Plastid-rps12 3UTR RNA: an 84-nucleotide sequence from Sarcobatus vermiculatus.
Taxonomically the source falls in Sarcobatus (Eukaryota, Viridiplantae, Spermatophyta, Gunneridae).
It is annotated as a cis-regulatory element.
The family has 1,299 seed sequences and 1,710 matches in Rfam 15.1.
A reference for the family is Richter et al. (2023), "Retrograde signaling in plants: A critical review focusing on the GUN pathway and beyond", Plant Commun.
Plastid rpl20 is a non-coding RNA (ncRNA) recognised in plastids. It was found in the three prime untranslated region (3UTR) of rps12 gene, its 3UTR location sugest a role in transcript maduration.
RNA sequence: GGUUUCUAUUGGUGUAAAUCCGAUUUAAGAUGAGAAAAAUUUCCCAUUGGUAGCGAACGUUAUCCAUUAAGCGGGAAAUUUGAU
Numbered sequence: 001g002g003u004u005u006c007u008a009u010u011g012g013u014g015u016a017a018a019u020c021c022g023a024u025u026u027a028a029g030a031u032g033a034g035a036a037a038a039a040u041u042u043c044c045c046a047u048u049g050g051u052a053g054c055g056a057a058c059g060u061u062a063u064c065c066a067u068u069a070a071g072c073g074g075g076a077a078a079u080u081u082g083a084u
Base pairs, nucleotide, nucleotide: 010022011021012020042076043075044074045073046067047066049064050063051062052061053060054059

Rfam's curators put it in the seed alignment.